[Rfam]
Rfam assigns this 171-nucleotide RNA sequence from Pseudactinobacillus ducreyi to the family "Lysine riboswitch aptamer". The sequence is in the family's curated seed alignment. The base pairs follow the family's consensus structure, which is taken from published work. Rfam 15.1 lists 3,224 matches to the family in 1,923 species.
RNA sequence: ACAAAUUGUAGAGGUGCAAAUCCGAUAAGUAUUUCUUCUGAGUGGAAAGCGAUGAAGGGGAAGGAAAGGCGUAUUUGCCGAAAUCAAUUAAGCGUCAUCUUAGUUGGUUGGGGUCGUUGCCGAAAGGGACGACACUGUCGUAAUUCAAUAUUACGGAGUGCUACUAUUAGG
Numbered sequence: 001a002c003a004a005a006u007u008g009u010a011g012a013g014g015u016g017c018a019a020a021u022c023c024g025a026u027a028a029g030u031a032u033u034u035c036u037u038c039u040g041a042g043u044g045g046a047a048a049g050c051g052a053u054g055a056a057g058g059g060g061a062a063g064g065a066a067a068g069g070c071g072u073a074u075u076u077g078c079c080g081a082a083a084u085c086a087a088u089u090a091a092g093c094g095u096c097a098u099c100u101u102a103g104u105u106g107g108u109u110g111g112g113g114u115c116g117u118u119g120c121c122g123a124a125a126g127g128g129a130c131g132a133c134a135c136u137g138u139c140g141u142a143a144u145u146c147a148a149u150a151u152u153a154c155g156g157a158g159u160g161c162u163a164c165u166a167u168u169a170g171g
Base pairs, nucleotide, nucleotide: 006166008164009163010162011161016078017077018076019075020074021073023071024070032063033062034061035060036059037058038057039056082109083108084107085106086105087104088103089102090101091100092099110136111135113133114132115131116130117129118128120126138156139155140154141153142152143151144150